[Rfam]
RNA: Bacterial RNase P class A
Organism: Rhodovulum adriaticum
RNA sequence: GCGGAUGGCCGGAUGACCGCGGGCGGCAACGCACGAGGAAAGUCCGGACUCCACGGAGCAACGGUGCCGGGUAACGCCCGGCGGGGGCAACCCCAGGGAAAGCGCCACAGAGAACAGACCGCCCCGGUCCGCCGGGGCAAGGGUGAAACGGUGGGGUAAGGGCCCACCGCGGGACUGGCAACAGGACCGGCACGGCAAGCCCCACCGGGAGCAAUGCCAAAUAGGGAUCCCGCGCGGGCAACCGCAGGCGGCUUCGGCCCAGGGGUCCGGGUUGGCAGCUUGAGGCGGAUCGGCAACGAUGCGCCCAGAUGAAUGGUCAUCCACGGGGUUUCGGCCCCCGGACAGAAUCCGGCUUACAGGCCAUCCGCGCGC
Numbered sequence: 001g002c003g004g005a006u007g008g009c010c011g012g013a014u015g016a017c018c019g020c021g022g023g024c025g026g027c028a029a030c031g032c033a034c035g036a037g038g039a040a041a042g043u044c045c046g047g048a049c050u051c052c053a054c055g056g057a058g059c060a061a062c063g064g065u066g067c068c069g070g071g072u073a074a075c076g077c078c079c080g081g082c083g084g085g086g087g088c089a090a091c092c093c094c095a096g097g098g099a100a101a102g103c104g105c106c107a108c109a110g111a112g113a114a115c116a117g118a119c120c121g122c123c124c125c126g127g128u129c130c131g132c133c134g135g136g137g138c139a140a141g142g143g144u145g146a147a148a149c150g151g152u153g154g155g156g157u158a159a160g161g162g163c164c165c166a167c168c169g170c171g172g173g174a175c176u177g178g179c180a181a182c183a184g185g186a187c188c189g190g191c192a193c194g195g196c197a198a199g200c201c202c203c204a205c206c207g208g209g210a211g212c213a214a215u216g217c218c219a220a221a222u223a224g225g226g227a228u229c230c231c232g233c234g235c236g237g238g239c240a241a242c243c244g245c246a247g248g249c250g251g252c253u254u255c256g257g258c259c260c261a262g263g264g265g266u267c268c269g270g271g272u273u274g275g276c277a278g279c280u281u282g283a284g285g286c287g288g289a290u291c292g293g294c295a296a297c298g299a300u301g302c303g304c305c306c307a308g309a310u311g312a313a314u315g316g317u318c319a320u321c322c323a324c325g326g327g328g329u330u331u332c333g334g335c336c337c338c339c340g341g342a343c344a345g346a347a348u349c350c351g352g353c354u355u356a357c358a359g360g361c362c363a364u365c366c367g368c369g370c371g372c
Stems, first nucleotide, its partner, number of pairs: 001368010011357001012321007020035002023032003040355003044352005049211004057254002062207005067081005082096001083094004097202002102200002104196003119142002121138007150168006169191001170189003175184003215277004225268006247259003285304003289300004